[Rfam]
RNA sequence: UUAAGUUAACUACAUAAAAUAUGUCAUAUCUUUUAAUUAUAUGCAUUCACCUCAAUAAGACGUAGAACCCCAAACAUUUUCUAAUGGAGGUUGAUGUGUAUAAUUAAAAGAAAUAACAUAUUUUAUGUGGUUAACUUAACU
Numbered sequence: 001u002u003a004a005g006u007u008a009a010c011u012a013c014a015u016a017a018a019a020u021a022u023g024u025c026a027u028a029u030c031u032u033u034u035a036a037u038u039a040u041a042u043g044c045a046u047u048c049a050c051c052u053c054a055a056u057a058a059g060a061c062g063u064a065g066a067a068c069c070c071c072a073a074a075c076a077u078u079u080u081c082u083a084a085u086g087g088a089g090g091u092u093g094a095u096g097u098g099u100a101u102a103a104u105u106a107a108a109a110g111a112a113a114u115a116a117c118a119u120a121u122u123u124u125a126u127g128u129g130g131u132u133a134a135c136u137u138a139a140c141u
Stems, first nucleotide, its partner, number of pairs: 001139024029111019049091004
MIR7993 microRNA precursor family: a 141-nucleotide RNA from Anisodus acutangulus. NCBI's taxonomy places the organism under Eukaryota, Streptophytina, Tracheophyta, Solanaceae, Anisodus. A search with the family's covariance model found it, with a score of 110 bits. Rfam 15.1 lists 59 matches to the family in 6 species.